[Rfam]
RNA sequence: UGCAGUCAGGCCUCAAGACAUUGAGCCACCGGAUGGGACUAGACGGUGCUGCCUGCGCGUCCCCCCCUUUGAUCAAGCUAGAUGGUCAGUAGGGGU
Numbered sequence: 001u002g003c004a005g006u007c008a009g010g011c012c013u014c015a016a017g018a019c020a021u022u023g024a025g026c027c028a029c030c031g032g033a034u035g036g037g038a039c040u041a042g043a044c045g046g047u048g049c050u051g052c053c054u055g056c057g058c059g060u061c062c063c064c065c066c067c068u069u070u071g072a073u074c075a076a077g078c079u080a081g082a083u084g085g086u087c088a089g090u091a092g093g094g095g096u
Stems, first nucleotide, its partner, number of pairs: 003032001010027001012025004035063003046058004